[Rfam]
RNA sequence: UGAUGGUCGUUCCCCCUGGCGCUCUGAGACCUGGCGUCCUAGGGUUUAGAUCAUCACAGAUGAAAGCGAGUUUUCUUCACCCGGUGUGUGCCGACUGCUUGUCCAUGGCCAUGCCGGACUUUGCUGGACUCUACACAG
Number, nucleotide and partner (000 for none) at each position: 001u056002g055003a054004u053005g052006g051007u050008c049009g000010u000011u000012c000013c000014c044015c043016c042017u041018g040019g000020c036021g035022c034023u033024c000025u000026g000027a000028g000029a000030c000031c000032u000033g023034g022035c021036g020037u000038c000039c000040u018041a017042g016043g015044g014045u000046u000047u000048a000049g008050a007051u006052c005053a004054u003055c002056a001057c000058a000059g000060a000061u000062g000063a000064a000065a000066g000067c000068g000069a130070g129071u128072u127073u126074u000075c000076u000077u000078c000079a000080c000081c117082c116083g115084g114085u113086g112087u111088g110089u000090g000091c000092c000093g000094a000095c000096u000097g000098c000099u000100u000101g000102u000103c000104c000105a000106u000107g000108g000109c000110c088111a087112u086113g085114c084115c083116g082117g081118a000119c000120u000121u000122u000123g000124c000125u000126g073127g072128a071129c070130u069131c000132u000133a000134c000135a000136c000137a000138g000